The family of this 157-nucleotide RNA from bacterium 1xD8-6 is "Clostridiales-1 RNA". Rfam classes the family as a small RNA. A search with the family's covariance model found it, with a score of 102 bits.
RNA sequence: AAAAAGUAAAGCCAAGCAUUUAAGAAUACACUAUGCUUGCAUAGGGGUAUUCUCAAAUAUUUGGCGCACCACCAAUAUGAGCAAGUAGCACGAUAGGGCGGAUUGCGAUUGUAGGUGGCGAUUGCGAGAGUGCGUAGCACGAAACAAUCGACUUUUA
Numbered sequence: 001a002a003a004a005a006g007u008a009a010a011g012c013c014a015a016g017c018a019u020u021u022a023a024g025a026a027u028a029c030a031c032u033a034u035g036c037u038u039g040c041a042u043a044g045g046g047g048u049a050u051u052c053u054c055a056a057a058u059a060u061u062u063g064g065c066g067c068a069c070c071a072c073c074a075a076u077a078u079g080a081g082c083a084a085g086u087a088g089c090a091c092g093a094u095a096g097g098g099c100g101g102a103u104u105g106c107g108a109u110u111g112u113a114g115g116u117g118g119c120g121a122u123u124g125c126g127a128g129a130g131u132g133c134g135u136a137g138c139a140c141g142a143a144a145c146a147a148u149c150g151a152c153u154u155u156u157a
Stems, first nucleotide, its partner, number of pairs: 002156006011065003016060001018058004023053007031044005071116003075112003081106004088099002091096001119150006130140004